Description
The family of this 74-nucleotide RNA is "tRNA".

RNA sequence: CGGGGCGUGGCGCAGCUUGGUAGCGCACCCGCUUUGGGAGCGGGGGGUCGCAGGUUCAAAUCCUGUCGCCCCGA
Numbered sequence: 001c002g003g004g005g006c007g008u009g010g011c012g013c014a015g016c017u018u019g020g021u022a023g024c025g026c027a028c029c030c031g032c033u034u035u036g037g038g039a040g041c042g043g044g045g046g047g048u049c050g051c052a053g054g055u056u057c058a059a060a061u062c063c064u065g066u067c068g069c070c071c072c073g074a
Stems, first nucleotide, its partner, number of pairs: 001073007010026004028044005050066005
It is annotated as a transfer RNA.